[Rfam]
RNA sequence: GCAGGAGUAAUAACAAAAUUCUUGUUUUGUCAAGAAUUUUGUUAUUACUCUUGCAACU
Numbered sequence: 001g002c003a004g005g006a007g008u009a010a011u012a013a014c015a016a017a018a019u020u021c022u023u024g025u026u027u028u029g030u031c032a033a034g035a036a037u038u039u040u041g042u043u044a045u046u047a048c049u050c051u052u053g054c055a056a057c058u
Stems, first nucleotide, its partner, number of pairs: 001054014019036006
RNA: Plastid-psbA-3 3UTR RNA